Rfam assigns this 207-nucleotide part of an RNA from Fusarium austroafricanum to the family "Ascomycota telomerase RNA". NCBI's taxonomy places the organism under Eukaryota, Pezizomycotina, leotiomyceta, sordariomyceta, Fusarium concolor species complex. Pairs were carried over by alignment from the consensus structure. Clan: Telomerase clan.
RNA sequence: UCCCCCACAGUCCUCCGGCCCUCGUUUCUCGCAAGAGAUCCUAUCGUAGGUGCCCAACUUGUUUGGUUACCCUCCCAUAUGCCGCUCUCGAGCCUGUAACAGGACCUCGUGAAUGCUGCAGCUGGAUUAUGGUGGGUAGCGCAUCCUGUAUAGGAUGUACCAAGCGGACGGGUGAACGAGGUUCGGAACUUAACCCUAAGAAGAUAU
Numbered sequence: 001u002c003c004c005c006c007a008c009a010g011u012c013c014u015c016c017g018g019c020c021c022u023c024g025u026u027u028c029u030c031g032c033a034a035g036a037g038a039u040c041c042u043a044u045c046g047u048a049g050g051u052g053c054c055c056a057a058c059u060u061g062u063u064u065g066g067u068u069a070c071c072c073u074c075c076c077a078u079a080u081g082c083c084g085c086u087c088u089c090g091a092g093c094c095u096g097u098a099a100c101a102g103g104a105c106c107u108c109g110u111g112a113a114u115g116c117u118g119c120a121g122c123u124g125g126a127u128u129a130u131g132g133u134g135g136g137u138a139g140c141g142c143a144u145c146c147u148g149u150a151u152a153g154g155a156u157g158u159a160c161c162a163a164g165c166g167g168a169c170g171g172g173u174g175a176a177c178g179a180g181g182u183u184c185g186g187a188a189c190u191u192a193a194c195c196c197u198a199a200g201a202a203g204a205u206a207u
Stems, first nucleotide, its partner, number of pairs: 009190003015186004